[Rfam]
RNA: FMN riboswitch aptamer (RFN element)
Organism: Dialister histaminiformans
RNA sequence: AUUUCUCUUCAGGGCAAGGUGAAAAUCCUUACCGGUGGUGAUAGCCCACGAGCGCAAGCAGAUUUGGUGCAAUUCCAAAGCCGACAGUAAUAAAACAGUAUUGGUUUUUGAGUCUGGAUGAAAGACAGAGAAGA
Number, nucleotide and partner (000 for none) at each position: 001a000002u000003u132004u131005c130006u129007c128008u127009u125010c124011a000012g000013g000014g000015c000016a000017a029018g028019g027020u000021g000022a000023a000024a000025a000026u000027c019028c018029u017030u000031a000032c000033c083034g082035g049036u048037g047038g046039u000040g000041a000042u000043a000044g081045c080046c038047c037048a036049c035050g000051a000052g059053c058054g000055c000056a000057a000058g053059c052060a000061g000062a000063u079064u078065u077066g076067g075068u000069g000070c000071a000072a000073u000074u000075c067076c066077a065078a064079a063080g045081c044082c034083g033084a000085c116086a115087g114088u000089a000090a000091u000092a000093a000094a000095a000096c000097a000098g000099u000100a000101u000102u000103g000104g000105u000106u000107u000108u000109u000110g000111a000112g000113u000114c087115u086116g085117g000118a000119u000120g000121a000122a000123a000124g010125a009126c000127a008128g007129a006130g005131a004132a003133g000134a000